[Rfam]
Nucleotides: 086
Stems, first nucleotide, its partner, number of pairs: 003084003040054005
Number, partner (000 for none) and nucleotide at each position: 001000c002000a003084u004083c005082a006000a007000g008000u009000g010000a011000u012000g013000a014000g015000a016000a017000a018000a019000a020000a021000a022000u023000a024000a025000c026000u027000g028000c029000a030000a031000c032000a033000a034000u035000a036000u037000g038000a039000u040054u041053g042052g043051a044050a045000u046000u047000c048000u049000a050044u051043u052042c053041c054040a055000a056000u057000g058000a059000u060000u061000c062000u063000c064000a065000u066000g067000u068000a069000u070000u071000u072000a073000a074000g075000u076000c077000u078000c079000u080000g081000a082005u083004g084003a085000u086000c
Rfam assigns this 86-nucleotide sequence from Lupinus angustifolius to the family "Small nucleolar RNA Z199". NCBI's taxonomy places the organism under Eukaryota, Streptophytina, Spermatophyta, fabids, Lupinus. Rfam 15.1 lists 953 matches to the family in 222 species. For this family Rfam cites "The high diversity of snoRNAs in plants: identification and comparative study of 120 snoRNA genes from Oryza sativa" (Chen et al., Nucleic Acids Res, 2003).